[Rfam]
RNA sequence: ACCGUAUCUAGCUCGACGGGGCGAAAAAUGGGAAACCUUACCUAUCUGAUACGGUAUUCUUUAAGG
Numbered sequence: 001a002c003c004g005u006a007u008c009u010a011g012c013u014c015g016a017c018g019g020g021g022c023g024a025a026a027a028a029u030g031g032g033a034a035a036c037c038u039u040a041c042c043u044a045u046c047u048g049a050u051a052c053g054g055u056a057u058u059c060u061u062u063a064a065g066g
Base pairs, nucleotide, nucleotide: 001055002054003053004052005051006050007049008048011022012021013020014019028045029044030043031042032041036066037065038064039063040062
The record is a 66-nucleotide RNA sequence from Providencia rettgeri, which matches "int-alpA RNA" in Rfam. The family has 167 seed sequences and 577 matches in Rfam 15.1. The sequence is in the family's curated seed alignment. From the family's description: Acidobacteria (1 example), Planctomycetes (1 example), Proteobacteria. The source organism's lineage runs through Bacteria, Pseudomonadati, Enterobacterales, Morganellaceae and Providencia rettgeri.